The record is a 72-nucleotide sequence from Pikeienuella piscinae, which matches "tRNA" in Rfam. The source organism's lineage runs through Bacteria, Pseudomonadati, Pseudomonadota, Paracoccaceae and Pikeienuella.
RNA sequence: GUCCCGUUCGUCUAGCGGUCAGGACAUCGCCCUCUCACGGCGAAAACAGGGGUUCGAUUCCCCUACGGGAUA
Numbered sequence: 001g002u003c004c005c006g007u008u009c010g011u012c013u014a015g016c017g018g019u020c021a022g023g024a025c026a027u028c029g030c031c032c033u034c035u036c037a038c039g040g041c042g043a044a045a046a047c048a049g050g051g052g053u054u055c056g057a058u059u060c061c062c063c064u065a066c067g068g069g070a071u072a
Base pairs, nucleotide, nucleotide: 001071002070003069004068005067006066007065010025011024012023013022027043028042029041030040031039048064049063050062051061052060